[Rfam]
RNA sequence: CACCCAUGAGAAUAAAUUAUUCUGUGGUCACUUUGAGUUACGAUAAUUACUAUACUAAUUUACGAGAUUAUGGUAACUCUUUCGUAAGUGAUUUACUAUAGCAUUAUGGUAAAUAUCAUCUUAAAUUAUAGUAACCUAUGUAUCAUAAAUGUGUAUUGUUAUUAUCGUAAAUUGAUACAAACAUUAUCGUAAAUCAAGGUGGCCAUAGAAUAAAUUAUUCUAUGGCCA
Number, nucleotide and partner (000 for none) at each position: 001c000002a000003c000004c225005c224006a223007u222008g000009a221010g220011a219012a218013u217014a216015a215016a000017u213018u212019a211020u210021u209022c208023u207024g206025u205026g204027g203028u202029c201030a200031c199032u198033u197034u196035g000036a000037g000038u192039u191040a190041c189042g188043a187044u186045a185046a184047u183048u000049a000050c000051u179052a000053u177054a176055c000056u174057a173058a172059u171060u170061u169062a168063c167064g000065a000066g166067a165068u164069u000070a162071u161072g160073g000074u000075a156076a000077c000078u000079c000080u149081u148082u147083c000084g000085u000086a000087a000088g143089u142090g141091a000092u000093u138094u133095a132096c131097u130098a129099u128100a127101g126102c000103a000104u123105u000106a000107u000108g000109g117110u000111a000112a000113a000114u000115a000116u000117c109118a000119u000120c000121u000122u000123a104124a000125a000126u101127u100128a099129u098130a097131g096132u095133a094134a000135c000136c000137u000138a093139u000140g000141u090142a089143u088144c000145a000146u000147a082148a081149a080150u000151g000152u000153g000154u000155a000156u075157u000158g000159u000160u072161a071162u070163u000164a068165u067166c066167g063168u062169a061170a060171a059172u058173u057174g056175a000176u054177a053178c000179a051180a000181a000182c000183a047184u046185u045186a044187u043188c042189g041190u040191a039192a038193a000194u000195c000196a034197a033198g032199g031200u030201g029202g028203c027204c026205a025206u024207a023208g022209a021210a020211u019212a018213a017214a000215u015216u014217a013218u012219u011220c010221u009222a007223u006224g005225g004226c000227c000228a000
Record summary:
The record is a 228-nucleotide sequence from Miscanthus lutarioriparius, which matches "MIR6217 microRNA precursor family" in Rfam.